RNA sequence: GGCUGGUCUGAGUGCAGUGGUGUUUACAACUAAUUAAUCACAACCAGUUACAGAUUCCUUUGUUCUUCUUCACUCCCACUGCUUCACUUGACUAGUCUAAA
Numbered sequence: 001g002g003c004u005g006g007u008c009u010g011a012g013u014g015c016a017g018u019g020g021u022g023u024u025u026a027c028a029a030c031u032a033a034u035u036a037a038u039c040a041c042a043a044c045c046a047g048u049u050a051c052a053g054a055u056u057c058c059u060u061u062g063u064u065c066u067u068c069u070u071c072a073c074u075c076c077c078a079c080u081g082c083u084u085c086a087c088u089u090g091a092c093u094a095g096u097c098u099a100a101a
Base pairs, nucleotide, nucleotide: 001097002096003095004094005093006092007091008090010089011088014085016080017079018078019077020076022075028064029063030062032060033059

Rfam assigns this 101-nucleotide sequence from Otolemur garnettii to the family "Y RNA". The base pairs follow the family's consensus structure, which is taken from published work. A search with the family's covariance model found it, with a score of 75 bits. For this family Rfam cites "Conserved features of Y RNAs: a comparison of experimentally derived secondary structures" (Teunissen et al., Nucleic Acids Res, 2000). It is annotated as a non-coding RNA gene.